[Rfam]
RNA sequence: AUAAUUCUUCAGGGCGGGGUGGAAUUCCCCACCGGCGGUGAUUAAUUUGCAAAAAUUAUCAGCCCGCGAGCGCUUUACCGUGAGUAGCAAACAUGUGGUAAAGGUCCAGCAGAUCCGGUGUCAAUCCGGAGCCGACGGUUCAGGGUAAAAUCGUUAUCUCAGCGAUAGUCCCGUAAAGUCCGGAUGGGAGAAGAAAAAU
Numbered sequence: 001a002u003a004a005u006u007c008u009u010c011a012g013g014g015c016g017g018g019g020u021g022g023a024a025u026u027c028c029c030c031a032c033c034g035g036c037g038g039u040g041a042u043u044a045a046u047u048u049g050c051a052a053a054a055a056u057u058a059u060c061a062g063c064c065c066g067c068g069a070g071c072g073c074u075u076u077a078c079c080g081u082g083a084g085u086a087g088c089a090a091a092c093a094u095g096u097g098g099u100a101a102a103g104g105u106c107c108a109g110c111a112g113a114u115c116c117g118g119u120g121u122c123a124a125u126c127c128g129g130a131g132c133c134g135a136c137g138g139u140u141c142a143g144g145g146u147a148a149a150a151u152c153g154u155u156a157u158c159u160c161a162g163c164g165a166u167a168g169u170c171c172c173g174u175a176a177a178g179u180c181c182g183g184a185u186g187g188g189a190g191a192a193g194a195a196a197a198a199u
Stems, first nucleotide, its partner, number of pairs: 005195006017029003033134002035067004062132002070110002114130005136182003
RNA: FMN riboswitch aptamer (RFN element)